[Rfam]
RNA sequence: GAGGGAGCGGCAGUUAAGACUUGUAGUGAUGUUUAGAUAAUGUAUUACAUGAACAUCACUUUAAGUCUGUGCUACUUCUC
Numbered sequence: 001g002a003g004g005g006a007g008c009g010g011c012a013g014u015u016a017a018g019a020c021u022u023g024u025a026g027u028g029a030u031g032u033u034u035a036g037a038u039a040a041u042g043u044a045u046u047a048c049a050u051g052a053a054c055a056u057c058a059c060u061u062u063a064a065g066u067c068u069g070u071g072c073u074a075c076u077u078c079u080c
Stems, first nucleotide, its partner, number of pairs: 017068007026059010
The record is an 80-nucleotide sequence from Gallus gallus, which matches "mir-499 microRNA precursor family" in Rfam.
Pairs were carried over by alignment from the consensus structure, which was predicted with RNAalifold.
It is one of the family's seed sequences.
On this family, see Murchison et al., Genome Res 2008: "Conservation of small RNA pathways in platypus".